RNA sequence: GAAAUUCCCCAGGAUUUCUCGACCUAGUACGUCUACCUGGUGACUUGCGCUGUCUGUUGCUUUGCGUAGGGAAUUUCUCUCCAAUAUUAUUAUCUUUAAUUUGGGGUUUGAAGGUUGGGUCUACCCUUCGGGGGGAUAAAUUGUAACUUCCAACAAAUAAGCGACAUG
Numbered sequence: 001g002a003a004a005u006u007c008c009c010c011a012g013g014a015u016u017u018c019u020c021g022a023c024c025u026a027g028u029a030c031g032u033c034u035a036c037c038u039g040g041u042g043a044c045u046u047g048c049g050c051u052g053u054c055u056g057u058u059g060c061u062u063u064g065c066g067u068a069g070g071g072a073a074u075u076u077c078u079c080u081c082c083a084a085u086a087u088u089a090u091u092a093u094c095u096u097u098a099a100u101u102u103g104g105g106g107u108u109u110g111a112a113g114g115u116u117g118g119g120u121c122u123a124c125c126c127u128u129c130g131g132g133g134g135g136a137u138a139a140a141u142u143g144u145a146a147c148u149u150c151c152a153a154c155a156a157a158u159a160a161g162c163g164a165c166a167u168g
Base pairs, nucleotide, nucleotide: 001077002076003075004074005073006072007071008070009069012038013037015035046068047067048066049065050064079106080105081104082103083102114154115153116152117151118150120136121135122134124133125132126131

Tombusvirus 5' UTR: a 168-nucleotide RNA sequence from Tombusvirus lycopersici. The literature on the family includes a 2003 paper in RNA by Ray et al., "A second functional RNA domain in the 5' UTR of the Tomato bushy stunt virus genome: Intra- and interdomain interactions mediate viral RNA replication". The family's RNA type in Rfam is cis-regulatory element. Rfam describes the family as follows. Tomato bushy stunt virus is the prototype member of the Tombusviridae family. In addition to viral proteins p33 and the RNA-dependent RNA polymerase p92, and unknown host factors, RNA signals within the UTRs are necessary for genome replication. 2 RNA domains in the 5' UTR have been reported, a 5' T-shaped domain (TSD) followed by a stem-loop (SL5) and a downstream domain (DSD). These domains are combined into a single family here. Reference proposes that TSD-DSD interactions are involved in the mediation of viral RNA replication. The full alignment of this family contains a number of defective interfering (DI) deletion mutants, used to study RNA virus replication.